Rfam assigns this 73-nucleotide sequence from Eleutherodactylus coqui to the family "Small nucleolar RNA SNORD20". The match comes from Rfam's covariance-model search (57 bits).

RNA sequence: UGGAAAUGAUGAUAAAACAAUCUGAACUUCUGAUGAGAACUUUUUUUCUCUAGAUAGUCAAGUACUGAUCCAG
Numbered sequence: 001u002g003g004a005a006a007u008g009a010u011g012a013u014a015a016a017a018c019a020a021u022c023u024g025a026a027c028u029u030c031u032g033a034u035g036a037g038a039a040c041u042u043u044u045u046u047u048c049u050c051u052a053g054a055u056a057g058u059c060a061a062g063u064a065c066u067g068a069u070c071c072a073g
Base pairs, nucleotide, nucleotide: 001072002071003070004069
The pairing is the family consensus, mapped onto this sequence. Rfam describes the family as follows. U20 is a C/D box small nucleolar RNA that is encoded in intron 11 of the nucleolin gene in human, mouse and rat. The source organism's lineage runs through Eukaryota, Opisthokonta, Vertebrata, Hyloidea and Eleutherodactylus. Gene Ontology terms of the family: RNA processing and nucleolus. On this family, see Nicoloso et al., Mol Cell Biol 1994: "U20, a novel small nucleolar RNA, is encoded in an intron of the nucleolin gene in mammals".